[Rfam]
RNA sequence: UUCCGAGGUUUUCCUCGGCAGUUAAUUGCUGCCGGUUUCAAAUUCCUCGGCAGUUAACUGCCGAGGGGACA
Numbered sequence: 001u002u003c004c005g006a007g008g009u010u011u012u013c014c015u016c017g018g019c020a021g022u023u024a025a026u027u028g029c030u031g032c033c034g035g036u037u038u039c040a041a042a043u044u045c046c047u048c049g050g051c052a053g054u055u056a057a058c059u060g061c062c063g064a065g066g067g068g069a070c071a
Stems, first nucleotide, its partner, number of pairs: 012067002015064017
Source information:
Rfam assigns this 71-nucleotide RNA from Medicago truncatula to the family "MIR2629 microRNA precursor family". Its family is annotated with miRNA-mediated post-transcriptional gene silencing and RISC complex in the Gene Ontology. NCBI's taxonomy places the organism under Eukaryota, Streptophytina, Magnoliopsida, Fabaceae, Medicago. The match comes from Rfam's covariance-model search (66 bits).